[Rfam]
RNA sequence: UUGGUUAGAACUCACCACAGGUUGGCGCCGUAACGACGCCGACACAUCGGCUCGCCACGCCGGCAGCGAGCCACCAACGGCAGAAAAACUCUGCCCGGCCUCAGACGAGGCCGAAGGAUAUCAAGACAGUCAAC
Numbered sequence: 001u002u003g004g005u006u007a008g009a010a011c012u013c014a015c016c017a018c019a020g021g022u023u024g025g026c027g028c029c030g031u032a033a034c035g036a037c038g039c040c041g042a043c044a045c046a047u048c049g050g051c052u053c054g055c056c057a058c059g060c061c062g063g064c065a066g067c068g069a070g071c072c073a074c075c076a077a078c079g080g081c082a083g084a085a086a087a088a089c090u091c092u093g094c095c096c097g098g099c100c101u102c103a104g105a106c107g108a109g110g111c112c113g114a115a116g117g118a119u120a121u122c123a124a125g126a127c128a129g130u131c132a133a134c
Base pairs, nucleotide, nucleotide: 021043022042023041024040025039026038027037029035049072050071051070052069053068054067055066079095080094081093082092083091084090097112098111099110100109101108102107